[Rfam]
Rfam assigns this 72-nucleotide RNA to the family "Fluoride riboswitch aptamer (crcB RNA motif)".
The base pairs follow the family's consensus structure, which is taken from published work.
RNA sequence: AGUGUUGCAGGCGAUGAAGCUCGCCGUUGCCCAUGGCAAAACCGCCGCAAGGCUGAUAGCUUCUAUUCUAUA
Numbered sequence: 001a002g003u004g005u006u007g008c009a010g011g012c013g014a015u016g017a018a019g020c021u022c023g024c025c026g027u028u029g030c031c032c033a034u035g036g037c038a039a040a041a042c043c044g045c046c047g048c049a050a051g052g053c054u055g056a057u058a059g060c061u062u063c064u065a066u067u068c069u070a071u072a
Stems, first nucleotide, its partner, number of pairs: 010025004016063006044053003
Dot-bracket structure: .........[[[[..((((((]]]]..................(((....)))....)))))).........